[Rfam]
RNA: tRNA
RNA sequence: GGCUAGGUAACAUAAUGGAAAUGUAUCGGACUGCAAAUCCUGGAAUGACGGUUCGACCCCGUCCUUGGCCU
Numbered sequence: 001g002g003c004u005a006g007g008u009a010a011c012a013u014a015a016u017g018g019a020a021a022u023g024u025a026u027c028g029g030a031c032u033g034c035a036a037a038u039c040c041u042g043g044a045a046u047g048a049c050g051g052u053u054c055g056a057c058c059c060c061g062u063c064c065u066u067g068g069c070c071u
Base pairs, nucleotide, nucleotide: 001070002069003068004067005066006065007064010024011023012022013021026042028040029039030038047063048062049061050060051059